RNA: ArcZ RNA
Organism: Citrobacter koseri
RNA sequence: GUGCGGCCUGAAAAGCAGAGCUGCGCCUGUGUAAAAAACAAUCAUAACUUACGGCGCAGCCACGAUUUCCCUGGUGUUGGCGCAGUAUUCGCGCACCCCGGUCAAUCC
Dot-bracket structure: ...................((((((((.........................))))))))............(((....((((.......)))))))...........